[Rfam]
RNA sequence: AUUAAAUAUUGUUAGGUGAGGCUCCUAUACAAACAUAGGCUAUUGCCCAAAAAUGUCGAGAGACACCAAUGGGUAGGACAAGAACUGUCGAACACAAGGCUUUUCUCAAAAUAGCUAAGAUUUAUCUUUACGUUGUAUAGUGCUAAAGCUCAACAUUCUAAUCAUUGUU
Numbered sequence: 001a002u003u004a005a006a007u008a009u010u011g012u013u014a015g016g017u018g019a020g021g022c023u024c025c026u027a028u029a030c031a032a033a034c035a036u037a038g039g040c041u042a043u044u045g046c047c048c049a050a051a052a053a054u055g056u057c058g059a060g061a062g063a064c065a066c067c068a069a070u071g072g073g074u075a076g077g078a079c080a081a082g083a084a085c086u087g088u089c090g091a092a093c094a095c096a097a098g099g100c101u102u103u104u105c106u107c108a109a110a111a112u113a114g115c116u117a118a119g120a121u122u123u124a125u126c127u128u129u130a131c132g133u134u135g136u137a138u139a140g141u142g143c144u145a146a147a148g149c150u151c152a153a154c155a156u157u158c159u160a161a162u163c164a165u166u167g168u169u
Stems, first nucleotide, its partner, number of pairs: 005165001008162003011154002013097001015150003020144003025140008039115005045074005054065004081106004087100003117128003

A member of the RNA family "M-box riboswitch aptamer (ykoK leader)" from Vagococcus carniphilus, 169 nucleotides long. Taxonomically the source falls in Vagococcus (Bacteria, Bacillati, Bacillota, Lactobacillales). The pairing is the family consensus, mapped onto this sequence.